[Rfam]
The record is a 65-nucleotide RNA from Prolemur simus, which matches "U7 small nuclear RNA" in Rfam.
The match comes from Rfam's covariance-model search (50 bits).
From the family's description: Animal histone pre-mRNAs are spliced by a different mechanism than nuclear pre-mRNAs and self-splicing introns.
The base pairs follow the family's consensus structure, which was predicted with PFOLD.
RNA sequence: AAAUAUUAUUGCUCUUCCAGAAUCUGUCCAGCAGGUUUUCUGGUUUUUAUCAGAAACCGACCCCU
Numbered sequence: 001a002a003a004u005a006u007u008a009u010u011g012c013u014c015u016u017c018c019a020g021a022a023u024c025u026g027u028c029c030a031g032c033a034g035g036u037u038u039u040c041u042g043g044u045u046u047u048u049a050u051c052a053g054a055a056a057c058c059g060a061c062c063c064c065u
Stems, first nucleotide, its partner, number of pairs: 034062003037056008
Dot-bracket structure: .................................(((((((((((....))))))))...)))...